RNA sequence: AGUUGAAAGUUCGAGGUCACAGCAGAAUCGCUUAUGGGACAGCCCUGUCAGAUUUCAAAGAAUCUGUGAAUUCUGCU
Numbered sequence: 001a002g003u004u005g006a007a008a009g010u011u012c013g014a015g016g017u018c019a020c021a022g023c024a025g026a027a028u029c030g031c032u033u034a035u036g037g038g039a040c041a042g043c044c045c046u047g048u049c050a051g052a053u054u055u056c057a058a059a060g061a062a063u064c065u066g067u068g069a070a071u072u073c074u075g076c077u
Base pairs, nucleotide, nucleotide: 013045015043016040017039018038021077022076023075024074025073026072027071028037029036030035049066050065051064052063053062054061055060